Shown here is a 120-nucleotide sequence from Ipomoea nil, a member of the family "MIR397 microRNA precursor family". A search with the family's covariance model found it, with a score of 63 bits.

RNA sequence: CUUAAAUGCAUCAUUGAGUGCAGCGUUGAUGAGCAUUAAAGAACGGCGGCUAUGGCGACCGCCGCCGCAGUUUCUGUUUUCUCCGGCGGCUCAUUGACGCUGCACUCAAUCAUGCUUUUG
Numbered sequence: 001c002u003u004a005a006a007u008g009c010a011u012c013a014u015u016g017a018g019u020g021c022a023g024c025g026u027u028g029a030u031g032a033g034c035a036u037u038a039a040a041g042a043a044c045g046g047c048g049g050c051u052a053u054g055g056c057g058a059c060c061g062c063c064g065c066c067g068c069a070g071u072u073u074c075u076g077u078u079u080u081c082u083c084c085g086g087c088g089g090c091u092c093a094u095u096g097a098c099g100c101u102g103c104a105c106u107c108a109a110u111c112a113u114g115c116u117u118u119u120g
Stems, first nucleotide, its partner, number of pairs: 006117001008115004013110016030093005
Rfam 15.1 lists 496 matches to the family in 218 species.